A member of the RNA family "Small nucleolar RNA SNORA61" from Carlito syrichta, 133 nucleotides long. Rfam describes the family as follows. ACA61 is a member of the H/ACA class of snoRNA that guide the sites of modification of uridines to pseudouridines. NCBI's taxonomy places the organism under Eukaryota, Eumetazoa, Bilateria, Sarcopterygii, Carlito. By type it is an H/ACA-box small nucleolar RNA. The match comes from Rfam's covariance-model search (144 bits). Gene Ontology terms of the family: nucleolus and RNA processing.
RNA sequence: ACCCUCCAGUUCCCUUUCCCAUCGGAUCUGAACACUGGUCUUGGUGGUCGUAAAAGGAGGAAGAGGAAUACUGAAGCUGGCCUCACAGUGUUGUAGCCUGGUAGUACAGCAUGUGGGCUGGUUUCUAACAGGU
Number, nucleotide and partner (000 for none) at each position: 001a000002c000003c060004c059005u058006c057007c056008a000009g000010u000011u000012c000013c000014c000015u000016u000017u000018c000019c047020c046021a045022u044023c043024g000025g040026a039027u038028c037029u000030g000031a000032a000033c000034a000035c000036u000037g028038g027039u026040c025041u000042u000043g023044g022045u021046g020047g019048u000049c000050g000051u000052a000053a000054a000055a000056g007057g006058a005059g004060g003061a000062a000063g000064a000065g000066g000067a000068a000069u000070a000071c000072u000073g000074a000075a000076g000077c121078u120079g119080g118081c117082c116083u115084c000085a000086c000087a000088g000089u000090g000091u000092u111093g110094u109095a000096g000097c000098c000099u000100g000101g000102u000103a000104g000105u000106a000107c000108a000109g094110c093111a092112u000113g000114u000115g083116g082117g081118c080119u079120g078121g077122u000123u000124u000125c000126u000127a000128a000129c000130a000131g000132g000133u000